[Rfam]
This 126-nucleotide RNA from Castor canadensis belongs to the Rfam family "Small nucleolar RNA SNORA42/SNORA80 family". The source organism's lineage runs through Eukaryota, Gnathostomata, Dipnotetrapodomorpha, Mammalia and Castor. From the family's description: The members of this family belong to the H/ACA class of snoRNAs that guide the sites of modification of uridines to pseudouridines. Human ACA42 (SNORA42) was cloned from HeLa cells by immunoprecipitation with anti-GAR1 antibody. On this family, see Schattner et al., RNA 2006: "A computational screen for mammalian pseudouridylation guide H/ACA RNAs".

RNA sequence: ACAUGAAUUACAAGAUGGCAGGCCUGUGCCCCUGGGACUGUCGUAGUGUCCCAUGUCAGAGAAAACUGUGGCUCCAAACCAUUGCCUGGCCUCUGCCUGUAGGCUCCUGGCACUGUGCACAGAGGA
Numbered sequence: 001a002c003a004u005g006a007a008u009u010a011c012a013a014g015a016u017g018g019c020a021g022g023c024c025u026g027u028g029c030c031c032c033u034g035g036g037a038c039u040g041u042c043g044u045a046g047u048g049u050c051c052c053a054u055g056u057c058a059g060a061g062a063a064a065a066c067u068g069u070g071g072c073u074c075c076a077a078a079c080c081a082u083u084g085c086c087u088g089g090c091c092u093c094u095g096c097c098u099g100u101a102g103g104c105u106c107c108u109g110g111c112a113c114u115g116u117g118c119a120c121a122g123a124g125g126a
Stems, first nucleotide, its partner, number of pairs: 001056004005051001007049002015044004020039002023035002072124003080115002085110002088105005